[Rfam]
RNA sequence: UCGUGAGUCGUUGAUGGCUUGAAGCUAUCGCGACGUGCUCCAUGGCGUUCCAGGAAGAAUGACGCGGAGUUUCACCAGAAAAAGGAA
Number, nucleotide and partner (000 for none) at each position: 001u000002c000003g000004u000005g000006a000007g034008u033009c032010g031011u030012u000013g029014a028015u027016g000017g025018c024019u000020u000021g000022a000023a000024g018025c017026u000027a015028u014029c013030g011031c010032g009033a008034c007035g072036u000037g070038c069039u068040c067041c066042a000043u064044g063045g000046c061047g060048u059049u058050c057051c000052a000053g000054g000055a000056a000057g050058a049059a048060u047061g046062a000063c044064g043065c000066g041067g040068a039069g038070u037071u000072u035073c000074a000075c000076c000077a000078g000079a000080a000081a000082a000083a000084g000085g000086a000087a000

Record summary:
gyrA RNA: an 87-nucleotide RNA sequence from Ectopseudomonas mendocina.